[Rfam]
RNA: Acido-Lenti-1 RNA
RNA sequence: CCCAGGGUUUACACCCUGGGCUAGGUAGCUCCACUCCUUCGGAGUG
Number, nucleotide and partner (000 for none) at each position: 001c020002c019003c018004a017005g016006g015007g014008u013009u000010u000011a000012c000013a008014c007015c006016c005017u004018g003019g002020g001021c000022u000023a000024g000025g000026u000027a000028g000029c000030u000031c000032c000033a045034c044035u043036c042037c041038u000039u000040c000041g037042g036043a035044g034045u033046g000